The record is a 36-nucleotide sequence from Mucilaginibacter sp., which matches "DUF805b RNA" in Rfam. The family's RNA type in Rfam is cis-regulatory element.

[Rfam]
RNA sequence: AUGGGGGAUGCCGAAAAUCCAAUUAAAGAGUAGGCG
Numbered sequence: 001a002u003g004g005g006g007g008a009u010g011c012c013g014a015a016a017a018u019c020c021a022a023u024u025a026a027a028g029a030g031u032a033g034g035c036g
Stems, first nucleotide, its partner, number of pairs: 002021004010035003

Pairs were carried over by alignment from the consensus structure, which is taken from published work. Lineage of the source: Bacteria > Pseudomonadati > Bacteroidota > Sphingobacteriaceae > Mucilaginibacter.